[Rfam]
RNA sequence: GGAAUAUAAAAAUCCGACUCUUAACUUUUAACUGAAAAAGUUAAAAGUCGGCUCUUAAAUAAGAAAUUUAAGAACCGACUUUUAACUUUUUCAGUUAAAAGUUAAGAGUCGGGUUCUUAUAUUCU
Numbered sequence: 001g002g003a004a005u006a007u008a009a010a011a012a013u014c015c016g017a018c019u020c021u022u023a024a025c026u027u028u029u030a031a032c033u034g035a036a037a038a039a040g041u042u043a044a045a046a047g048u049c050g051g052c053u054c055u056u057a058a059a060u061a062a063g064a065a066a067u068u069u070a071a072g073a074a075c076c077g078a079c080u081u082u083u084a085a086c087u088u089u090u091u092c093a094g095u096u097a098a099a100a101g102u103u104a105a106g107a108g109u110c111g112g113g114u115u116c117u118u119a120u121a122u123u124c125u
Stems, first nucleotide, its partner, number of pairs: 001125009011115029041085007
A member of the RNA family "MIR9563 microRNA precursor family" from Brassica napus, 125 nucleotides long. A search with the family's covariance model found it, with a score of 123 bits. Taxonomically the source falls in Brassica (Eukaryota, Streptophytina, rosids, Brassiceae). The family has 2 seed sequences and 5,832 matches in Rfam 15.1.